[Rfam]
RNA sequence: AUUUUUAGCUUUAUAGUCUAGUAAGACUGACGGCUGGUGAUAAAAUCACCAGCCU
Numbered sequence: 001a002u003u004u005u006u007a008g009c010u011u012u013a014u015a016g017u018c019u020a021g022u023a024a025g026a027c028u029g030a031c032g033g034c035u036g037g038u039g040a041u042a043a044a045a046u047c048a049c050c051a052g053c054c055u
Stems, first nucleotide, its partner, number of pairs: 014029005032054010